[Rfam]
RNA sequence: GAAUUGGCUGCCUAGGGUUCCACGUCGCGCCGCAAGCGCGUCGGUUCGGUCCGAGAGGGAGCGCGUUUUCGCGAAUUGCGGAGACGAACACGGCGGGAUAAAAACCCGGGAGUA
Numbered sequence: 001g002a003a004u005u006g007g008c009u010g011c012c013u014a015g016g017g018u019u020c021c022a023c024g025u026c027g028c029g030c031c032g033c034a035a036g037c038g039c040g041u042c043g044g045u046u047c048g049g050u051c052c053g054a055g056a057g058g059g060a061g062c063g064c065g066u067u068u069u070c071g072c073g074a075a076u077u078g079c080g081g082a083g084a085c086g087a088a089c090a091c092g093g094c095g096g097g098a099u100a101a102a103a104a105c106c107c108g109g110g111a112g113u114a
Stems, first nucleotide, its partner, number of pairs: 007062003011058002015052002020049002022046001023043002026040005064086007089109001091112001095107003
The record is a 114-nucleotide RNA sequence from Cohnella endophytica, which matches "Guanidine-I riboswitch aptamer" in Rfam. About the family: This family represents a conserved RNA structure found upstream of the ykkC and yxkD genes in Bacillus subtilis and related genes in other bacteria. The function of this family is unclear although it has been suggested that it may function to switch on efflux pumps and detoxification systems in response to harmful environmental molecules. The organism belongs to Cohnella, within Bacteria. Its family is annotated with regulation of gene expression in the Gene Ontology.